[Rfam]
RNA: Y RNA-like
RNA sequence: ACGGCGAAUGCCGGCGGAACUACAGUUAAUCAUAUUGUCGCGGGUUCAAAUCCCGUCAUCGCGCCCGCGCGAUGUAGCUCAGUCUGGUAGAGCCUAUGACACGUUUCGCCACCUCCUUGUCGCCGUGAC
Numbered sequence: 001a002c003g004g005c006g007a008a009u010g011c012c013g014g015c016g017g018a019a020c021u022a023c024a025g026u027u028a029a030u031c032a033u034a035u036u037g038u039c040g041c042g043g044g045u046u047c048a049a050a051u052c053c054c055g056u057c058a059u060c061g062c063g064c065c066c067g068c069g070c071g072a073u074g075u076a077g078c079u080c081a082g083u084c085u086g087g088u089a090g091a092g093c094c095u096a097u098g099a100c101a102c103g104u105u106u107c108g109c110c111a112c113c114u115c116c117u118u119g120u121c122g123c124c125g126u127g128a129c
Stems, first nucleotide, its partner, number of pairs: 002125006013110007033096002040056005047087001057074006077093004